[Rfam]
This 394-nucleotide sequence from Lutibacter sp. Hel_I_33_5 belongs to the Rfam family "transfer-messenger RNA". Gene Ontology term of the family: RNA catabolic process. About the family: Bacterial tmRNA, also known as 10Sa RNA or SsrA, is named for its dual tRNA and mRNA-like properties. The source organism's lineage runs through Bacteria, Bacteroidota, Flavobacteriia, Flavobacteriaceae and Lutibacter.
RNA sequence: GGGGACGACUGGUUUUGACAGCAAGGUCAGUGAAUUUGUAAGCAUACCGAGUUAUGAAAUAACACUCGUAAAACUUAAUUUCAACUUUUUAAACGGCGAAGAUAACUACGCUUUAGCUGCAUAAUUCGAAUUAUAGUAGAAUUAGCCUCGGCACACUAGGUGUGCAAGCUUUAUGUCCACGAAAAGCCUUGGUUUACGGCGUUUCACUUUUGGGCAUCGUAAAAGUAAACAUAGAAAAUUUAGCACUUCGAUAAAUUUUUGAAACUAAAGAAGAUAGGCUUAAAGUAGAUUGUUUUUGAUCGGCUUUUUGAUGAAAACUAAACAAAAACUAAGUAUGUAGAAAGCUUGUUGGCUGCUUGUUUGGACCCGAGUUCGAUUCUCGGCGUCUCCACAG
Numbered sequence: 001g002g003g004g005a006c007g008a009c010u011g012g013u014u015u016u017g018a019c020a021g022c023a024a025g026g027u028c029a030g031u032g033a034a035u036u037u038g039u040a041a042g043c044a045u046a047c048c049g050a051g052u053u054a055u056g057a058a059a060u061a062a063c064a065c066u067c068g069u070a071a072a073a074c075u076u077a078a079u080u081u082c083a084a085c086u087u088u089u090u091a092a093a094c095g096g097c098g099a100a101g102a103u104a105a106c107u108a109c110g111c112u113u114u115a116g117c118u119g120c121a122u123a124a125u126u127c128g129a130a131u132u133a134u135a136g137u138a139g140a141a142u143u144a145g146c147c148u149c150g151g152c153a154c155a156c157u158a159g160g161u162g163u164g165c166a167a168g169c170u171u172u173a174u175g176u177c178c179a180c181g182a183a184a185a186g187c188c189u190u191g192g193u194u195u196a197c198g199g200c201g202u203u204u205c206a207c208u209u210u211u212g213g214g215c216a217u218c219g220u221a222a223a224a225g226u227a228a229a230c231a232u233a234g235a236a237a238a239u240u241u242a243g244c245a246c247u248u249c250g251a252u253a254a255a256u257u258u259u260u261g262a263a264a265c266u267a268a269a270g271a272a273g274a275u276a277g278g279c280u281u282a283a284a285g286u287a288g289a290u291u292g293u294u295u296u297u298g299a300u301c302g303g304c305u306u307u308u309u310g311a312u313g314a315a316a317a318c319u320a321a322a323c324a325a326a327a328a329c330u331a332a333g334u335a336u337g338u339a340g341a342a343a344g345c346u347u348g349u350u351g352g353c354u355g356c357u358u359g360u361u362u363g364g365a366c367c368c369g370a371g372u373u374c375g376a377u378u379c380u381c382g383g384c385g386u387c388u389c390c391a392c393a394g
Stems, first nucleotide, its partner, number of pairs: 001390007019363002021360005030353002033350003038345002043337005048068005055083006112135001114133003118130001120128001174216006181205004186200002189198001192230006234260009245275001247273002277312001279310001282307005288301003292329007367383005